Group II catalytic intron D1-D4-5: a 198-nucleotide RNA sequence from Bacillus cereus. The source organism's lineage runs through Bacteria, Bacillota, Bacillaceae, Bacillus and Bacillus cereus. Rfam's curators put it in the seed alignment. Rfam links the family to the GO term Group II intron splicing. Rfam describes the family as follows. Group II introns are found in rRNA, tRNA and mRNA of organelles in fungi, plants and protists, and also in mRNA in bacteria.

RNA sequence: UAGAACUGCUAUUCUGAAGUAUGGAAAGAUGGAGUAACGUCCUGAAACAUACUCACUGAAGCUACGGCAAGCGAUAGCGAUAAUGCAAACAUCAACAUCGUUUGAAGCCCGUUAAAGUAGGCUGAAGUUCACCCUAACGUAAAGACGAGGAAAGGGAGGUAUAAAUCUUCUGUGAAUGAUAGGUCUGGUGUCUAUAAA
Numbered sequence: 001u002a003g004a005a006c007u008g009c010u011a012u013u014c015u016g017a018a019g020u021a022u023g024g025a026a027a028g029a030u031g032g033a034g035u036a037a038c039g040u041c042c043u044g045a046a047a048c049a050u051a052c053u054c055a056c057u058g059a060a061g062c063u064a065c066g067g068c069a070a071g072c073g074a075u076a077g078c079g080a081u082a083a084u085g086c087a088a089a090c091a092u093c094a095a096c097a098u099c100g101u102u103u104g105a106a107g108c109c110c111g112u113u114a115a116a117g118u119a120g121g122c123u124g125a126a127g128u129u130c131a132c133c134c135u136a137a138c139g140u141a142a143a144g145a146c147g148a149g150g151a152a153a154g155g156g157a158g159g160u161a162u163a164a165a166u167c168u169u170c171u172g173u174g175a176a177u178g179a180u181a182g183g184u185c186u187g188g189u190g191u192c193u194a195u196a197a198a
Base pairs, nucleotide, nucleotide: 018053019052020051021050022049023048031043032042034040054190055189056188057187064112065111066110067109068104069103070102071101072100073099074098075097079093080092081091119186120185121184122183123182127177128176129175130174131173132172133150134149135148139146140145154171155170156169157168158167161166